[Rfam]
The record is a 215-nucleotide RNA from Oceanicaulis sp. HTCC2633, which matches "permuted transfer-messenger RNA" in Rfam. The organism belongs to Oceanicaulis, within Bacteria. Pairs were carried over by alignment from the consensus structure, which is taken from published work. It scores 131 bits against the family's covariance model. Rfam links the family to the GO term RNA catabolic process. It is annotated as a non-coding RNA gene.
Nucleotides: 215
Stems, first nucleotide, its partner, number of pairs: 001137005013127004025116002029113003035051005052099007138150004
Number, partner (000 for none) and nucleotide at each position: 001137g002136g003135c004134g005133a006000u007000a008000a009000a010000c011000g012000c013127g014126c015125g016124u017000g018000u019000a020000a021000u022000a023000a024000c025116c026115a027000g028000g029113c030112u031111g032000g033000a034000c035051c036050c037049g038048g039047g040000u041000g042000c043000g044000a045000a046000u047039c048038c049037c050036g051035g052099c053098g054097g055096c056095u057094c058093c059000a060000c061000c062000a063000a064000u065000c066000c067000u068000c069000u070000u071000c072000c073000g074000c075000a076000c077000g078000u079000u080000g081000g082000g083000c084000g085000g086000c087000g088000a089000g090000c091000a092000u093058g094057g095056g096055g097054c098053c099052g100000a101000a102000u103000a104000g105000g106000a107000u108000c109000g110000a111031c112030a113029g114000a115026u116025g117000g118000c119000u120000a121000a122000a123000g124016a125015c126014g127013u128000g129000g130000c131000u132000u133005u134004c135003g136002c137001c138150c139149g140148a141147a142000u143000g144000g145000g146000c147141u148140u149139c150138g151000u152000u153000a154000c155000c156000a157000g158000c159000c160000c161000a162000u163000a164000u165000u166000u167000a168000g169000u170000a171000g172000u173000u174000g175000c176000c177000a178000a179000c180000g181000a182000c183000a184000a185000c186000u187000a188000u189000g190000c191000u192000g193000a194000a195000g196000a197000g198000g199000u200000c201000g202000c203000u204000c205000u206000c207000g208000c209000u210000g211000c212000a213000u214000a215000g